[Rfam]
RNA sequence: UUUAUCGCUGAUGAUGUCUUGGCUCCCUCUACUGAGUUUCAAUGUAGAAGUCUGCCAUUGUUACCCAAUUUUUGUCUGAGAUAUG
Numbered sequence: 001u002u003u004a005u006c007g008c009u010g011a012u013g014a015u016g017u018c019u020u021g022g023c024u025c026c027c028u029c030u031a032c033u034g035a036g037u038u039u040c041a042a043u044g045u046a047g048a049a050g051u052c053u054g055c056c057a058u059u060g061u062u063a064c065c066c067a068a069u070u071u072u073u074g075u076c077u078g079a080g081a082u083a084u085g
Stems, first nucleotide, its partner, number of pairs: 001085001003083004
Rfam assigns this 85-nucleotide RNA sequence from Takifugu rubripes to the family "Small nucleolar RNA SNORD100". The source organism's lineage runs through Eukaryota, Teleostei, Euteleosteomorpha, Tetraodontiformes and Takifugu. Rfam 15.1 lists 838 matches to the family in 626 species. Gene Ontology terms of the family: nucleolus and RNA processing. The base pairs follow the family's consensus structure, which was predicted with RNAalifold. Rfam's curators put it in the seed alignment. The family is grouped with related families in Rfam's "SNORD100 clan". For this family Rfam cites "Purified box C/D snoRNPs are able to reproduce site-specific 2'-O-methylation of target RNA in vitro" (Galardi et al., Mol Cell Biol, 2002). By type it is a C/D-box small nucleolar RNA.